Rfam assigns this 137-nucleotide RNA sequence from Channa argus to the family "Small nucleolar RNA SNORA5". The family's RNA type in Rfam is H/ACA-box small nucleolar RNA. ACA5 is a member of the H/ACA class of snoRNA that guide the sites of modification of uridines to pseudouridines. Its Rfam clan is "SNORA5 clan". The source organism's lineage runs through Eukaryota, Eumetazoa, Craniata, Actinopteri and Channa. A search with the family's covariance model found it, with a score of 69 bits.
RNA sequence: AGCAGCCUUGUCAAAUUCAGUGCUUCCGCCUCAGUGGUUGCCACUGGCCAAAACGGCUGCCACAGCAACAGUGUAGUUCAUGGGCCCCACUAUGCUUCACCAUGGCUGCUGGGGAUAAACACGUACUACACACAAAC
Number, nucleotide and partner (000 for none) at each position: 001a000002g060003c059004a058005g057006c000007c000008u000009u000010g000011u000012c000013a000014a000015a000016u000017u000018c046019a045020g044021u043022g042023c040024u000025u000026c037027c036028g000029c000030c000031u000032c000033a000034g000035u000036g027037g026038u000039u000040g023041c000042c022043a021044c020045u019046g018047g000048c000049c000050a000051a000052a000053a000054c000055g000056g000057c005058u004059g003060c002061c000062a000063c000064a000065g000066c000067a000068a000069c000070a000071g000072u000073g129074u128075a127076g126077u125078u123079c000080a000081u000082g000083g000084g000085c114086c113087c112088c111089a110090c000091u000092a000093u000094g000095c000096u000097u000098c000099a000100c000101c000102a000103u000104g000105g000106c000107u000108g000109c000110u089111g088112g087113g086114g085115a000116u000117a000118a000119a000120c000121a000122c000123g078124u000125a077126c076127u075128a074129c073130a000131c000132a000133c000134a000135a000136a000137c000